mir-231 microRNA precursor family: an 80-nucleotide RNA from Arctia plantaginis. Rfam links the family to the GO terms RISC complex and miRNA-mediated post-transcriptional gene silencing. For this family Rfam cites "Repertoire and evolution of miRNA genes in four divergent nematode species" (de Wit et al., Genome Res, 2009).

RNA sequence: AGAUUUUCUGACGAUCUCGAAAGCCUGCAAUGUGAAUUGUGUAUUCACAUUGCAGGCUCGCGAGAUCGUCAGAAAAUCUG
Dot-bracket structure: .(((((((((.((((((((..((((((((.(((.............))).))))))))..)))))))).)))))))))..
Numbered sequence: 001a002g003a004u005u006u007u008c009u010g011a012c013g014a015u016c017u018c019g020a021a022a023g024c025c026u027g028c029a030a031u032g033u034g035a036a037u038u039g040u041g042u043a044u045u046c047a048c049a050u051u052g053c054a055g056g057c058u059c060g061c062g063a064g065a066u067c068g069u070c071a072g073a074a075a076a077u078c079u080g
Stems, first nucleotide, its partner, number of pairs: 002078009012068008022058008031049003
Rfam 15.1 lists 12 matches to the family in 11 species.